The family of this 107-nucleotide RNA sequence from Gracilibacillus thailandensis is "TPP riboswitch aptamer (THI element)".

RNA sequence: ACAUUCCACUAGGGGUGUCUUUUAAAGACUGAGAUUAAAGUAAUACUUUAAGACCCUUAGAACCUGAUCUGGUUCAUACCAGCGUAGGGAAGUGGCUAGUAUCUAAU
Numbered sequence: 001a002c003a004u005u006c007c008a009c010u011a012g013g014g015g016u017g018u019c020u021u022u023u024a025a026a027g028a029c030u031g032a033g034a035u036u037a038a039a040g041u042a043a044u045a046c047u048u049u050a051a052g053a054c055c056c057u058u059a060g061a062a063c064c065u066g067a068u069c070u071g072g073u074u075c076a077u078a079c080c081a082g083c084g085u086a087g088g089g090a091a092g093u094g095g096c097u098a099g100u101a102u103c104u105a106a107u
Base pairs, nucleotide, nucleotide: 006095007094008093009092010091011057012056013055014054016051017029018028019027020026021025036050037049038048039047040046063088064087065086066085069082070081071080072079

Record summary:
Pairs were carried over by alignment from the consensus structure, which is taken from published work. Taxonomically the source falls in Gracilibacillus (Bacteria, Bacillati, Caryophanales, Bacillaceae). Vitamin B(1) in its active form thiamin pyrophosphate (TPP) is an essential coenzyme that is synthesised by coupling of pyrimidine and thiazole moieties in bacteria. The match comes from Rfam's covariance-model search (94 bits).